[Rfam]
RNA sequence: AUGAACAUCGUGGGAGAGUGCGCAAACACUGCGCCGCCGAAGGAGCAAGGGAAGGGGAGCGGUCCCUAACCGGAAUCUCUCAGGUAUAAAGUACCGCGGUGGGACG
Numbered sequence: 001a002u003g004a005a006c007a008u009c010g011u012g013g014g015a016g017a018g019u020g021c022g023c024a025a026a027c028a029c030u031g032c033g034c035c036g037c038c039g040a041a042g043g044a045g046c047a048a049g050g051g052a053a054g055g056g057g058a059g060c061g062g063u064c065c066c067u068a069a070c071c072g073g074a075a076u077c078u079c080u081c082a083g084g085u086a087u088a089a090a091g092u093a094c095c096g097c098g099g100u101g102g103g104a105c106g
Stems, first nucleotide, its partner, number of pairs: 006101008020034004036085003039081002043079003050071001

Rfam assigns this 106-nucleotide RNA from Ferroacidibacillus organovorans to the family "Glycine riboswitch aptamer". Its family is annotated with glycine biosynthetic process in the Gene Ontology.